[Rfam]
RNA sequence: CCAUGGGCGAAGGUCCUGUGGGCAGCUGUCCUGCCCUGUGGCCGGGGCUGUGUGGUUAGGGGACCUGUGGAACGCAACCCUGCCUGCCAGCG
Number, nucleotide and partner (000 for none) at each position: 001c000002c000003a000004u089005g000006g087007g000008c086009g085010a000011a000012g084013g083014u000015c000016c000017u000018g000019u000020g080021g079022g078023c000024a000025g000026c000027u000028g000029u070030c069031c067032u000033g000034c061035c060036c059037u058038g000039u000040g000041g000042c000043c000044g000045g000046g000047g000048c000049u000050g000051u000052g000053u000054g000055g000056u000057u000058a037059g036060g035061g034062g000063a000064c000065c000066u000067g031068u000069g030070g029071a000072a000073c000074g000075c000076a000077a000078c022079c021080c020081u000082g000083c013084c012085u009086g008087c006088c000089a004090g000091c000092g000

The family of this 92-nucleotide sequence from Castor canadensis is "NoRC associated RNA, pRNA". On this family, see Mayer et al., EMBO Rep 2008: "The structure of NoRC-associated RNA is crucial for targeting the chromatin remodelling complex NoRC to the nucleolus". The family's RNA type in Rfam is non-coding RNA gene. The family's consensus secondary structure is taken from published work. Its family is annotated with chromatin remodeling in the Gene Ontology.